[Rfam]
RNA: Small nucleolar RNA snoR99
Organism: Glycine max
RNA sequence: UUGCUCUAGGCUAGGGAUGAAUGUGUCCCUCACAUAUAAUGCUUCCUUCCGAUUCACCUUGUCAGCUUUGUUUUUUUUUAAUGUUUUGCUGAUCAUUGUAGGAUGGAAUAUCU
Numbered sequence: 001u002u003g004c005u006c007u008a009g010g011c012u013a014g015g016g017a018u019g020a021a022u023g024u025g026u027c028c029c030u031c032a033c034a035u036a037u038a039a040u041g042c043u044u045c046c047u048u049c050c051g052a053u054u055c056a057c058c059u060u061g062u063c064a065g066c067u068u069u070g071u072u073u074u075u076u077u078u079u080a081a082u083g084u085u086u087u088g089c090u091g092a093u094c095a096u097u098g099u100a101g102g103a104u105g106g107a108a109u110a111u112c113u
Base pairs, nucleotide, nucleotide: 044107045106046105048103049102061093062092063091064090065089066088
Dot-bracket structure: ...........................................(((.((...........((((((.....................))))))........)).)))......